Rfam assigns this 382-nucleotide RNA from Pseudomonas sp. M47T1 to the family "Pseudomonas sRNA CrcZ". The family's RNA type in Rfam is small RNA. The source organism's lineage runs through Bacteria, Pseudomonadota, Pseudomonadales, Pseudomonadaceae and Pseudomonas.
RNA sequence: ACAAGAACAACAAUAAGCAAUGACACACUCUAAUAAAAACAAGAUGACACGGCUCACGCAUAACAAGAACAACACGGCGGAGGCGCAGCUAACUGAUUCUUUUGGAGAGGCGUUGUAAUUGGGGCUAGCCCCACACCCAGGCAAAGACCAAUAAAAACUGCACUGAAAAGCAGAACGGCAUGGGAUGAAAGCAACUCAGCGACCAAAGCAAUCCGUUUGCUCUUGCUCCCGGUUAGGGAGCAGCCCACUGGCGAAGGCCACGCGGGCAGGGCGUUAACAAAAACAAGAAGCCCGAACAAAAAAACAAGAAGAGCAUGCAACUACAUUCCUUGGGGAGCUUCGGCUCCCCUUGUAGUUUCCACGUUUCGUCCCCCUCGUUGCG
Numbered sequence: 001a002c003a004a005g006a007a008c009a010a011c012a013a014u015a016a017g018c019a020a021u022g023a024c025a026c027a028c029u030c031u032a033a034u035a036a037a038a039a040c041a042a043g044a045u046g047a048c049a050c051g052g053c054u055c056a057c058g059c060a061u062a063a064c065a066a067g068a069a070c071a072a073c074a075c076g077g078c079g080g081a082g083g084c085g086c087a088g089c090u091a092a093c094u095g096a097u098u099c100u101u102u103u104g105g106a107g108a109g110g111c112g113u114u115g116u117a118a119u120u121g122g123g124g125c126u127a128g129c130c131c132c133a134c135a136c137c138c139a140g141g142c143a144a145a146g147a148c149c150a151a152u153a154a155a156a157a158c159u160g161c162a163c164u165g166a167a168a169a170g171c172a173g174a175a176c177g178g179c180a181u182g183g184g185a186u187g188a189a190a191g192c193a194a195c196u197c198a199g200c201g202a203c204c205a206a207a208g209c210a211a212u213c214c215g216u217u218u219g220c221u222c223u224u225g226c227u228c229c230c231g232g233u234u235a236g237g238g239a240g241c242a243g244c245c246c247a248c249u250g251g252c253g254a255a256g257g258c259c260a261c262g263c264g265g266g267c268a269g270g271g272c273g274u275u276a277a278c279a280a281a282a283a284c285a286a287g288a289a290g291c292c293c294g295a296a297c298a299a300a301a302a303a304a305c306a307a308g309a310a311g312a313g314c315a316u317g318c319a320a321c322u323a324c325a326u327u328c329c330u331u332g333g334g335g336a337g338c339u340u341c342g343g344c345u346c347c348c349c350u351u352g353u354a355g356u357u358u359c360c361a362c363g364u365u366u367c368g369u370c371c372c373c374c375u376c377g378u379u380g381c382g
Base pairs, nucleotide, nucleotide: 050085051084053082054081055080100208101207102206103205104204114201115200116199134187135186137184138183140181158173159172160171161170225241226240227239228238229237265367266365269293270292271291272290313358315356316355332349333348334347335346336345337344338343

On this family, see Livny et al., Nucleic Acids Res 2006: "Identification of 17 Pseudomonas aeruginosa sRNAs and prediction of sRNA-encoding genes in 10 diverse pathogens using the bioinformatic tool sRNAPredict2". Rfam links the family to the GO term carbon catabolite repression of transcription.